[Rfam]
RNA sequence: AUUCGAUUGUUGAUCAAGAAGAGUAACUUUUUUGUUUUUUUUAAGCGAGUUCGGAGUUGGUGGAAGCCGAAUAAAAAGGAAAAGUGAAACGCCCUUGAGAAAUUUGCAUAGCAAACGGCAUCUACCGUUAUUAGAUAAAGUGGGUUCGUUAAUCGAACAAACAGAGUGGUACCGCGGGAAAUCUCGUCUCUAGU
Numbered sequence: 001a002u003u004c005g006a007u008u009g010u011u012g013a014u015c016a017a018g019a020a021g022a023g024u025a026a027c028u029u030u031u032u033u034g035u036u037u038u039u040u041u042u043a044a045g046c047g048a049g050u051u052c053g054g055a056g057u058u059g060g061u062g063g064a065a066g067c068c069g070a071a072u073a074a075a076a077a078g079g080a081a082a083a084g085u086g087a088a089a090c091g092c093c094c095u096u097g098a099g100a101a102a103u104u105u106g107c108a109u110a111g112c113a114a115a116c117g118g119c120a121u122c123u124a125c126c127g128u129u130a131u132u133a134g135a136u137a138a139a140g141u142g143g144g145u146u147c148g149u150u151a152a153u154c155g156a157a158c159a160a161a162c163a164g165a166g167u168g169g170u171a172c173c174g175c176g177g178g179a180a181a182u183c184u185c186g187u188c189u190c191u192a193g194u
Stems, first nucleotide, its partner, number of pairs: 007102002015097004026085006038075003049072006104114004116127003144158005163191004174187005
Overview
Rfam assigns this 194-nucleotide sequence from Enterococcus alcedinis to the family "T-box leader". About the family: Uncharged tRNA acts as the effector for transcription antitermination of genes in the T-box leader family. The base pairs follow the family's consensus structure, which is taken from published work.